RNA sequence: UACAAGCUGCGAUGUUCGUAUUUAAAUUAAGUUUUAACCUCUAACAGAUGAAUAGGGAGUUUUAUAUCGGGACUCAAAUGUCGUGCCUCCAACGAGUGGAAGACAGGAAGGUUCCUGCAAACACCCACUUGGUGAAGUGGUGGUUUUAAAACUUUUUAUUUAAGAAAUACGGCACUUGUGGCUGCUAA
Numbered sequence: 001u002a003c004a005a006g007c008u009g010c011g012a013u014g015u016u017c018g019u020a021u022u023u024a025a026a027u028u029a030a031g032u033u034u035u036a037a038c039c040u041c042u043a044a045c046a047g048a049u050g051a052a053u054a055g056g057g058a059g060u061u062u063u064a065u066a067u068c069g070g071g072a073c074u075c076a077a078a079u080g081u082c083g084u085g086c087c088u089c090c091a092a093c094g095a096g097u098g099g100a101a102g103a104c105a106g107g108a109a110g111g112u113u114c115c116u117g118c119a120a121a122c123a124c125c126c127a128c129u130u131g132g133u134g135a136a137g138u139g140g141u142g143g144u145u146u147u148a149a150a151a152c153u154u155u156u157u158a159u160u161u162a163a164g165a166a167a168u169a170c171g172g173c174a175c176u177u178g179u180g181g182c183u184g185c186u187a188a
Stems, first nucleotide, its partner, number of pairs: 002186001005183007013174003017171003030153004035148003038143002055126003059122004066116001069115006080104002086099002089096001
Shown here is a 188-nucleotide sequence from Lentibacillus sp. CBA3610, a member of the family "6S / SsrS RNA". The family has 150 seed sequences and 5,006 matches in Rfam 15.1. From the family's description: E. coli 6S RNA was the first non coding RNA to be sequenced, but its function was unknown until recently. It consists of 184 nucleotides that fold into an extended hairpin structure with a large single-stranded internal bulge. The 6S RNA specifically associates with RNA polymerase holoenzyme containing the sigma70 specificity factor. This interaction represses expression from a sigma70-dependent promoter during stationary phase. 6S RNA homologs have recently been identified in most bacterial genomes. Many Gram-positive species have two copies of 6S RNA. In Bacillus subtilis, both copies appear to interact with RNA polymerase holoenzyme containing the housekeeping sigma factor and be expressed during different stages of growth. In many proteobacteria, 6S RNA may be processed from a transcript encoding homologs of the E. coli YgfA protein which is a putative 5-formyltetrahydrofolate cycloligase activity.